[Rfam]
RNA sequence: UAGUGUUGCAGCACUUUUAGGAUUUGUCUAGCAAGCUUUCUGAGCUUUUGUCAGAAGCACUCCC
Number, nucleotide and partner (000 for none) at each position: 001u000002a000003g000004u000005g000006u000007u000008g000009c000010a000011g000012c000013a000014c000015u000016u000017u000018u000019a000020g000021g000022a000023u000024u000025u000026g000027u000028c000029u000030a000031g000032c000033a000034a061035g060036c000037u057038u056039u055040c054041u053042g052043a051044g000045c000046u000047u000048u000049u000050g000051u043052c042053a041054g040055a039056a038057g037058c000059a000060c035061u034062c000063c000064c000
Rfam assigns this 64-nucleotide sequence from Ictidomys tridecemlineatus to the family "U7 small nuclear RNA".
The organism belongs to Ictidomys, within Eukaryota.
About the family: Animal histone pre-mRNAs are spliced by a different mechanism than nuclear pre-mRNAs and self-splicing introns. This processing involves the U7 snRNP, which contains only one RNA species: U7.